[Rfam]
RNA sequence: AAAGGAGGAAUCCAAAGGGAUAGCAUGAUCCAAAUAAAAGAAAAAAUGAAACAGCAAACAAGCAAGAAAUUACAUAAGAAGAGAUUAUUCUUAAUUUUUCUGAGGAUCAAUGCGAUCCCUUUGGAUGUCUCCUC
Numbered sequence: 001a002a003a004g005g006a007g008g009a010a011u012c013c014a015a016a017g018g019g020a021u022a023g024c025a026u027g028a029u030c031c032a033a034a035u036a037a038a039a040g041a042a043a044a045a046a047u048g049a050a051a052c053a054g055c056a057a058a059c060a061a062g063c064a065a066g067a068a069a070u071u072a073c074a075u076a077a078g079a080a081g082a083g084a085u086u087a088u089u090c091u092u093a094a095u096u097u098u099u100c101u102g103a104g105g106a107u108c109a110a111u112g113c114g115a116u117c118c119c120u121u122u123g124g125a126u127g128u129c130u131c132c133u134c
Stems, first nucleotide, its partner, number of pairs: 003133004008128001010126012023113003026109006
RNA: mir-393 microRNA precursor family